[Rfam]
RNA sequence: GCUGUGUUAAAGCAGCACGUCAAUACUGGAGUUGGAUGUCGGGGUAUCCAGUGUUACUGUUCUGCUCUAGUAAGGC
Numbered sequence: 001g002c003u004g005u006g007u008u009a010a011a012g013c014a015g016c017a018c019g020u021c022a023a024u025a026c027u028g029g030a031g032u033u034g035g036a037u038g039u040c041g042g043g044g045u046a047u048c049c050a051g052u053g054u055u056a057c058u059g060u061u062c063u064g065c066u067c068u069a070g071u072a073a074g075g076c
Base pairs, nucleotide, nucleotide: 001076002075003074005072006071007070011066012065013064014063015062017060018059020056022055023054024053025052026051027050028049029048
A member of the RNA family "mir-16 microRNA precursor family" from Silurus meridionalis, 76 nucleotides long. Taxonomically the source falls in Silurus (Eukaryota, Bilateria, Deuterostomia, Actinopteri). Its family is annotated with miRNA-mediated post-transcriptional gene silencing and RISC complex in the Gene Ontology. Rfam 15.1 lists 4,705 matches to the family in 758 species.